A member of the RNA family "Alphaproteobacteria transfer-messenger RNA" from Thalassorhabdomicrobium marinisediminis, 349 nucleotides long. The match comes from Rfam's covariance-model search (303 bits). Rfam describes the family as follows. Bacterial tmRNA, also known as 10Sa RNA or SsrA, is named for its dual tRNA and mRNA-like properties. Its role is to liberate the mRNA from a stalled ribosome. To accomplish this part of the tmRNA is used as a reading frame that ends in a translation stop signal. The broken mRNA is replaced in the ribosome by the tmRNA and translation of the tmRNA leads to addition of a proteolysis tag to the incomplete protein enabling recognition by a protease. Recently a number of permuted tmRNA genes have been found encoded in two parts. tmRNAs have been identified in eubacteria and some chloroplasts but are absent from archaeal and eukaryote nuclear genomes. The family's consensus secondary structure is taken from published work. The organism belongs to Thalassorhabdomicrobium, within Bacteria.

RNA sequence: CCAGUUGCAAAGCGCGCACCGCCCCCUAUAUUAGACCUGUCCUUCGGGACUAUGAACAUAAACGCGCUCGUAAUAAGCGGAUCGGACCCGGGGGCGGUACCCGGCGGCUCCACCAAACAUCGCUCAUUUGGCGACCAUGGGGCCGAAAUAGGAUCGACGAACGUCUAAAGGGGUUAGCUUUGUUUCGGUGAGUUACCACCGUUAUCGGUACAUAUAAGCUAGUUGCAAAUGACAACAAUGCUCAGGUCGCACUCGCAGCGUAAGCUGUGCGUAACACCUAAAUCUUAAGCCCUUGGGCCUAGCAGCUCAAGGCGGGGUUCGCAGGUACCUGGCAACAGAAACCUGCACU
Numbered sequence: 001c002c003a004g005u006u007g008c009a010a011a012g013c014g015c016g017c018a019c020c021g022c023c024c025c026c027u028a029u030a031u032u033a034g035a036c037c038u039g040u041c042c043u044u045c046g047g048g049a050c051u052a053u054g055a056a057c058a059u060a061a062a063c064g065c066g067c068u069c070g071u072a073a074u075a076a077g078c079g080g081a082u083c084g085g086a087c088c089c090g091g092g093g094g095c096g097g098u099a100c101c102c103g104g105c106g107g108c109u110c111c112a113c114c115a116a117a118c119a120u121c122g123c124u125c126a127u128u129u130g131g132c133g134a135c136c137a138u139g140g141g142g143c144c145g146a147a148a149u150a151g152g153a154u155c156g157a158c159g160a161a162c163g164u165c166u167a168a169a170g171g172g173g174u175u176a177g178c179u180u181u182g183u184u185u186c187g188g189u190g191a192g193u194u195a196c197c198a199c200c201g202u203u204a205u206c207g208g209u210a211c212a213u214a215u216a217a218g219c220u221a222g223u224u225g226c227a228a229a230u231g232a233c234a235a236c237a238a239u240g241c242u243c244a245g246g247u248c249g250c251a252c253u254c255g256c257a258g259c260g261u262a263a264g265c266u267g268u269g270c271g272u273a274a275c276a277c278c279u280a281a282a283u284c285u286u287a288a289g290c291c292c293u294u295g296g297g298c299c300u301a302g303c304a305g306c307u308c309a310a311g312g313c314g315g316g317g318u319u320c321g322c323a324g325g326u327a328c329c330u331g332g333c334a335a336c337a338g339a340a341a342c343c344u345g346c347a348c349u
Stems, first nucleotide, its partner, number of pairs: 039050004054185005064178002066174004078163002082160003088104005105145007186201004192211002195209003315330004321346006